[Rfam]
RNA sequence: GAGACCUUUAACGUAAAUCCAGAGAGGUUUACAAGGUCGUAUGGAAGACGUGUAUCCACACUACACGUAUACCUCUUUGCGACCAAAAACCGCAAAGAGGUUUUUUUA
Numbered sequence: 001g002a003g004a005c006c007u008u009u010a011a012c013g014u015a016a017a018u019c020c021a022g023a024g025a026g027g028u029u030u031a032c033a034a035g036g037u038c039g040u041a042u043g044g045a046a047g048a049c050g051u052g053u054a055u056c057c058a059c060a061c062u063a064c065a066c067g068u069a070u071a072c073c074u075c076u077u078u079g080c081g082a083c084c085a086a087a088a089a090c091c092g093c094a095a096a097g098a099g100g101u102u103u104u105u106u107u108a
Stems, first nucleotide, its partner, number of pairs: 003038006014031006047064001050061004067105001069103001071101010
Overview
A member of the RNA family "PyrR binding site" from Ornithinibacillus caprae, 108 nucleotides long. The family's RNA type in Rfam is cis-regulatory element. Lineage of the source: Bacteria > Bacillati > Caryophanales > Bacillaceae > Ornithinibacillus. The base pairs follow the family's consensus structure, which is taken from published work.